RNA sequence: AAGACUGCUGCCUAUGAUUACAUUUGCUGUCAGAAAUGUCCGUGUAGAUUUUCCUCAGCAUUCGUCACUACCACUGAGGCAGCAGUUUU
Numbered sequence: 001a002a003g004a005c006u007g008c009u010g011c012c013u014a015u016g017a018u019u020a021c022a023u024u025u026g027c028u029g030u031c032a033g034a035a036a037u038g039u040c041c042g043u044g045u046a047g048a049u050u051u052u053c054c055u056c057a058g059c060a061u062u063c064g065u066c067a068c069u070a071c072c073a074c075u076g077a078g079g080c081a082g083c084a085g086u087u088u089u
Stems, first nucleotide, its partner, number of pairs: 001089012
The family of this 89-nucleotide sequence from Amphiprion percula is "Small nucleolar RNA SNORD70". Rfam classes the family as a C/D-box small nucleolar RNA. About the family: snoRNA HBII-234 belongs to the C/D family of snoRNAs. It is the human orthologue of the mouse MBII-234 and is predicted to guide 2'O-ribose methylation of the small 18S rRNA on position A512. It is hosted, together with HBII-95, by the core C/D box snoRNA protein encoding gene NOP5/NOP58. The organism belongs to Amphiprion, within Eukaryota. Gene Ontology terms of the family: nucleolus and RNA processing.